A member of the RNA family "Mason-Pfizer monkey virus packaging signal" from Sciurus vulgaris, 290 nucleotides long. The family's RNA type in Rfam is cis-regulatory element. This family represents a group of sequences that are related to the Mason-Pfizer monkey virus (MPMV) packaging signal. The packaging signal is located in the 5' UTR and is required for specific RNA encapsidation. Pairs were carried over by alignment from the consensus structure, which was predicted with PFOLD. The match comes from Rfam's covariance-model search (177 bits). For this family Rfam cites "Secondary structure model of the Mason-Pfizer monkey virus 5' leader sequence: identification of a structural motif common to a variety of retroviruses" (Harrison et al., J Virol, 1995).

RNA sequence: UGGCGCCCAACGGUGUGGCUUCAGAUACGGGGUAAUUCGCGAGGGAAGAGGCGUGUAAGUGUUCGGCCGAAGAAAAAAAAAGUGAAAGUGAAAGUCAGUUCGACAAAGAUCGCUGCGGGAGCCUGCCGCGCCAUUCUUAAAGGUACAGUAGCGCCUAACUAUGGGACAAGAAUUAAGUAAGCAUAAAGUUUUUGUUAAGCAAUUAAAAGAAGCUUUAAAGACACGGGGAGUAAAGGUUAAGAGUAAUGAUCUUUUUAAGUUUUUUGACCUUAUUAAGGAUACCUGUCCGU
Numbered sequence: 001u002g003g004c005g006c007c008c009a010a011c012g013g014u015g016u017g018g019c020u021u022c023a024g025a026u027a028c029g030g031g032g033u034a035a036u037u038c039g040c041g042a043g044g045g046a047a048g049a050g051g052c053g054u055g056u057a058a059g060u061g062u063u064c065g066g067c068c069g070a071a072g073a074a075a076a077a078a079a080a081a082g083u084g085a086a087a088g089u090g091a092a093a094g095u096c097a098g099u100u101c102g103a104c105a106a107a108g109a110u111c112g113c114u115g116c117g118g119g120a121g122c123c124u125g126c127c128g129c130g131c132c133a134u135u136c137u138u139a140a141a142g143g144u145a146c147a148g149u150a151g152c153g154c155c156u157a158a159c160u161a162u163g164g165g166a167c168a169a170g171a172a173u174u175a176a177g178u179a180a181g182c183a184u185a186a187a188g189u190u191u192u193u194g195u196u197a198a199g200c201a202a203u204u205a206a207a208a209g210a211a212g213c214u215u216u217a218a219a220g221a222c223a224c225g226g227g228g229a230g231u232a233a234a235g236g237u238u239a240a241g242a243g244u245a246a247u248g249a250u251c252u253u254u255u256u257a258a259g260u261u262u263u264u265u266g267a268c269c270u271u272a273u274u275a276a277g278g279a280u281a282c283c284u285g286u287c288c289g290u
Base pairs, nucleotide, nucleotide: 006032007031008030013028014027015026037051038050040048095143096142099140100139108136109134110133114130115129116128117127118126149169151167154165155164156163157162174217175216176215177213178212224266225265226264227263228262229261230260231259234252235251236250237249238248239247275290277288278287279286280285